[Rfam]
RNA sequence: GCCGGGCGCGGUGGCGCGUACCUGUAGUCCCAGCUACUCGGGAGGCUGAGGCUGGAGGAUCGCUUGAGUCCAGGAGUUCUGGGCUGUAGUGCGCUAUGCCGAUCGGGUGUCCGCACUAAGUUCGGCAUCAAUAUGGUGACCUCCCGGGAGCGGGGGACCACCAGGUUGCCUAAGGAGGGGUGAACCGGCCCAGGUCGGAAACGGAGCAGGUCAAAACUCCCGUGCUGAUCAGUAGUGGGAUCGCGCCUGUGAAUAGCCACUGCACUCCAGCCUGGGCAACAUAGCGAGACCCCGUCUCUU
Numbered sequence: 001g002c003c004g005g006g007c008g009c010g011g012u013g014g015c016g017c018g019u020a021c022c023u024g025u026a027g028u029c030c031c032a033g034c035u036a037c038u039c040g041g042g043a044g045g046c047u048g049a050g051g052c053u054g055g056a057g058g059a060u061c062g063c064u065u066g067a068g069u070c071c072a073g074g075a076g077u078u079c080u081g082g083g084c085u086g087u088a089g090u091g092c093g094c095u096a097u098g099c100c101g102a103u104c105g106g107g108u109g110u111c112c113g114c115a116c117u118a119a120g121u122u123c124g125g126c127a128u129c130a131a132u133a134u135g136g137u138g139a140c141c142u143c144c145c146g147g148g149a150g151c152g153g154g155g156g157a158c159c160a161c162c163a164g165g166u167u168g169c170c171u172a173a174g175g176a177g178g179g180g181u182g183a184a185c186c187g188g189c190c191c192a193g194g195u196c197g198g199a200a201a202c203g204g205a206g207c208a209g210g211u212c213a214a215a216a217c218u219c220c221c222g223u224g225c226u227g228a229u230c231a232g233u234a235g236u237g238g239g240a241u242c243g244c245g246c247c248u249g250u251g252a253a254u255a256g257c258c259a260c261u262g263c264a265c266u267c268c269a270g271c272c273u274g275g276g277c278a279a280c281a282u283a284g285c286g287a288g289a290c291c292c293c294g295u296c297u298c299u300u
Stems, first nucleotide, its partner, number of pairs: 001046003004023003008019003028043003048298005054292002060287005068277007079270005085264007093257005099251001104249007111239002114237005120230001122228007129168004134163005141156006169175002177220005187212004195204003
Metazoan signal recognition particle RNA: a 300-nucleotide sequence from Pan troglodytes. It is one of the family's seed sequences.